[Rfam]
RNA sequence: UGGCGGGGGAGCACCACAACGGGUGGAGCCUGCGGUUUAAUUGGAUUCAACGCCGGGAAGCUUACCGGGAUCGACAGUUGUAUGAAGGCCAGGCUGAAGACCUUGCCGGACUAGCUGAGAGGAGGUGCAUGGCCGUCGUCAGUUCGUACCGUGAGGCGUCCUGUUAAGUCAGGCAACGAGCGAGACCCAUUUCCACUGUUGCUAACGACUCCGCGAGGAGGGCGAGUACACUGUGGAGACCGCUGGCGCUAAGUCAGAGGAAGGAUUGGUCGACGGUAGGUCAGUAUGCCCCGAAUAUCCCGGGCUACACGCGGGCUACAAUGGAUAGGACAAUGGGUAACUACACCGAAAGGUGGCGUCAAUCUCUUAAACCUAUCCUUAGUUCGGAUUGAGGGCUGGAACUCGCCCUCAUGAAGAUGGAAUCCGUAGUAAUCGCAUUUCAAAACAGUGCGGUGAAUACGUCCCUGCUCCUUGCACACACCGCCCGUCAAACCACCCGAGCGGGGCGUGAAUGAGGAUCCUUUUCAUUGAAGGACUCGAAUUCAUGUUCUGUAAGGGGGGUUAAGUCGUAACAAGG
Numbered sequence: 001u002g003g004c005g006g007g008g009g010a011g012c013a014c015c016a017c018a019a020c021g022g023g024u025g026g027a028g029c030c031u032g033c034g035g036u037u038u039a040a041u042u043g044g045a046u047u048c049a050a051c052g053c054c055g056g057g058a059a060g061c062u063u064a065c066c067g068g069g070a071u072c073g074a075c076a077g078u079u080g081u082a083u084g085a086a087g088g089c090c091a092g093g094c095u096g097a098a099g100a101c102c103u104u105g106c107c108g109g110a111c112u113a114g115c116u117g118a119g120a121g122g123a124g125g126u127g128c129a130u131g132g133c134c135g136u137c138g139u140c141a142g143u144u145c146g147u148a149c150c151g152u153g154a155g156g157c158g159u160c161c162u163g164u165u166a167a168g169u170c171a172g173g174c175a176a177c178g179a180g181c182g183a184g185a186c187c188c189a190u191u192u193c194c195a196c197u198g199u200u201g202c203u204a205a206c207g208a209c210u211c212c213g214c215g216a217g218g219a220g221g222g223c224g225a226g227u228a229c230a231c232u233g234u235g236g237a238g239a240c241c242g243c244u245g246g247c248g249c250u251a252a253g254u255c256a257g258a259g260g261a262a263g264g265a266u267u268g269g270u271c272g273a274c275g276g277u278a279g280g281u282c283a284g285u286a287u288g289c290c291c292c293g294a295a296u297a298u299c300c301c302g303g304g305c306u307a308c309a310c311g312c313g314g315g316c317u318a319c320a321a322u323g324g325a326u327a328g329g330a331c332a333a334u335g336g337g338u339a340a341c342u343a344c345a346c347c348g349a350a351a352g353g354u355g356g357c358g359u360c361a362a363u364c365u366c367u368u369a370a371a372c373c374u375a376u377c378c379u380u381a382g383u384u385c386g387g388a389u390u391g392a393g394g395g396c397u398g399g400a401a402c403u404c405g406c407c408c409u410c411a412u413g414a415a416g417a418u419g420g421a422a423u424c425c426g427u428a429g430u431a432a433u434c435g436c437a438u439u440u441c442a443a444a445a446c447a448g449u450g451c452g453g454u455g456a457a458u459a460c461g462u463c464c465c466u467g468c469u470c471c472u473u474g475c476a477c478a479c480a481c482c483g484c485c486c487g488u489c490a491a492a493c494c495a496c497c498c499g500a501g502c503g504g505g506g507c508g509u510g511a512a513u514g515a516g517g518a519u520c521c522u523u524u525u526c527a528u529u530g531a532a533g534g535a536c537u538c539g540a541a542u543u544c545a546u547g548u549u550c551u552g553u554a555a556g557g558g559g560g561g562u563u564a565a566g567u568c569g570u571a572a573c574a575a576g577g
Base pairs, nucleotide, nucleotide: 001478002477003475004474005473007472008471009470010469011468012467013466016462017461020426021425022424023423024422025319027317028316029315030314031313032312033311034310035308036307041056042055043054044053065303066302067301068300069299070298071297075117076116077115078114080111087107088106089105091103092102093101121292122291124290125289126288127287130286131285132281133280134279135277136276137275138274142181143180144179145178146177147176149156150155160173161172162171163170187269188268189267192237193236194235195234196233198231202226203225206224207223209220210219211218212217240260241259243257244256245255246254247253323378324377325376326375327374328373329372335366336365337364340359341358344355345354346353347352385416390411391410392409393408394407395406396405432454433453434452435451436450437449438448439447481576483573486569487568489566491563492562493561494560496558497557498556501553502552503551504550505549506548507547508546509545510544511543512542513541516538517537519535520534521533522532523531524530
Background:
The family of this 577-nucleotide part of an RNA from Methanocella paludicola is "Archaeal small subunit ribosomal RNA". The literature on the family includes a 2001 paper in Science by Yusupov et al., "Crystal structure of the ribosome at 5.5 A resolution". Gene Ontology terms of the family: ribosome and structural constituent of ribosome. The family's consensus secondary structure is taken from published work.